This 134-nucleotide RNA sequence from Jeotgalibaca porci belongs to the Rfam family "Ribosomal protein L20 leader". This family is a putative r-protein leader autoregulatory structure found in B. subtilis and other low-GC Gram-positive bacteria. It is located in the 5' untranslated regions of mRNAs encoding initiation factor 3 followed by ribosomal proteins L35 and L20 (infC-rpmI-rplT). A Rho-independent transcription terminator structure that is probably involved in regulation is included at the 3' end. The literature on the family includes a 1994 paper in Prog Nucleic Acid Res Mol Biol by Zengel and Lindahl, "Diverse mechanisms for regulating ribosomal protein synthesis in Escherichia coli". Pairs were carried over by alignment from the consensus structure, which was predicted with CMfinder.
RNA sequence: AAAUACAAGCAGGAGCACCCGCUUCUCGCCUAAGUUGACAGUUGUCCUUGGGCCAGAUAUGUACAAGUUUGUCACAGUAUUGGACUGUGUCAUAAUUGGGCGGGUAUCGGAGAUAUCCGCUCUUUUUUCUGCGC
Numbered sequence: 001a002a003a004u005a006c007a008a009g010c011a012g013g014a015g016c017a018c019c020c021g022c023u024u025c026u027c028g029c030c031u032a033a034g035u036u037g038a039c040a041g042u043u044g045u046c047c048u049u050g051g052g053c054c055a056g057a058u059a060u061g062u063a064c065a066a067g068u069u070u071g072u073c074a075c076a077g078u079a080u081u082g083g084a085c086u087g088u089g090u091c092a093u094a095a096u097u098g099g100g101c102g103g104g105u106a107u108c109g110g111a112g113a114u115a116u117c118c119g120c121u122c123u124u125u126u127u128u129c130u131g132c133g134c
Stems, first nucleotide, its partner, number of pairs: 011026006028053003037046003099121010